The family of this 74-nucleotide RNA sequence from Crocodylus porosus is "Mammalian CPEB3 ribozyme". It scores 38 bits against the family's covariance model. A reference for the family is Salehi-Ashtiani et al. (2006), "A genomewide search for ribozymes reveals an HDV-like sequence in the human CPEB3 gene", Science. The family's consensus secondary structure is taken from published work.
RNA sequence: ACAAAAUUCACGGACACAAUUGAAGUGCUCAUGGUACAAGUCUGUCAGAUUCCAGUGAACCUGUGAAUUCUGCU
Numbered sequence: 001a002c003a004a005a006a007u008u009c010a011c012g013g014a015c016a017c018a019a020u021u022g023a024a025g026u027g028c029u030c031a032u033g034g035u036a037c038a039a040g041u042c043u044g045u046c047a048g049a050u051u052c053c054a055g056u057g058a059a060c061c062u063g064u065g066a067a068u069u070c071u072g073c074u
Base pairs, nucleotide, nucleotide: 013042014041015040018074020072022070023069024068025037026036027035046063047062048061050059051058052057